[Rfam]
RNA sequence: AUGAAGGUUGUGGGAGAGACCCGUAAUCGGGCGCCGAAGGAGCAAGGGCAACCGAAACUCUCAGGCAAAAGGACCGCAACCGGACG
Numbered sequence: 001a002u003g004a005a006g007g008u009u010g011u012g013g014g015a016g017a018g019a020c021c022c023g024u025a026a027u028c029g030g031g032c033g034c035c036g037a038a039g040g041a042g043c044a045a046g047g048g049c050a051a052c053c054g055a056a057a058c059u060c061u062c063a064g065g066c067a068a069a070a071g072g073a074c075c076g077c078a079a080c081c082g083g084a085c086g
Stems, first nucleotide, its partner, number of pairs: 006081008020031004033066003036062002040060003046053002
Record summary:
A member of the RNA family "Glycine riboswitch aptamer" from Carboxydothermus hydrogenoformans, 86 nucleotides long. The base pairs follow the family's consensus structure. The source organism's lineage runs through Bacteria, Bacillota, Thermoanaerobacteraceae, Carboxydothermus and Carboxydothermus hydrogenoformans. A search with the family's covariance model found it, with a score of 78 bits.